[Rfam]
RNA sequence: AUAAAUUUAAAAGCGCCAGGGCUAUUUUCGGUUCGUAAUGAAAAUAGUUGACGAGGAGGAGGUUCAUCGAGACUUCGGCGGAUGCCUCCCGGUUGCGGCACUUCAACCGUUUGUUCAGUUUUUAAAACAAAGAGGCGACUCUUUUGGACAACGAAGCUGGGCGUAGUGCAA
Numbered sequence: 001a002u003a004a005a006u007u008u009a010a011a012a013g014c015g016c017c018a019g020g021g022c023u024a025u026u027u028u029c030g031g032u033u034c035g036u037a038a039u040g041a042a043a044a045u046a047g048u049u050g051a052c053g054a055g056g057a058g059g060a061g062g063u064u065c066a067u068c069g070a071g072a073c074u075u076c077g078g079c080g081g082a083u084g085c086c087u088c089c090c091g092g093u094u095g096c097g098g099c100a101c102u103u104c105a106a107c108c109g110u111u112u113g114u115u116c117a118g119u120u121u122u123u124a125a126a127a128c129a130a131a132g133a134g135g136c137g138a139c140u141c142u143u144u145u146g147g148a149c150a151a152c153g154a155a156g157c158u159g160g161g162c163g164u165a166g167u168g169c170a171a
Base pairs, nucleotide, nucleotide: 020049021048022047023046024045025044026043027042029040058089059088060087061086062085067078068077069076070075090109091108092107093106094105095104114161115160116159117158118157119156120155128146129145130144131142132141133140134139

glmS glucosamine-6-phosphate activated ribozyme aptamer: a 171-nucleotide RNA from Thalassobacillus cyri. This entry contains a glucosamine-6-phosphate activated ribozyme that is found in the mRNA for GlmS. GlmS is an enzyme that uses fructose-6-phosphate and glutamine to generate glucosamine-6-phosphate. The base pairs follow the family's consensus structure, which is taken from published work. On this family, see Winkler et al., Nature 2004: "Control of gene expression by a natural metabolite-responsive ribozyme".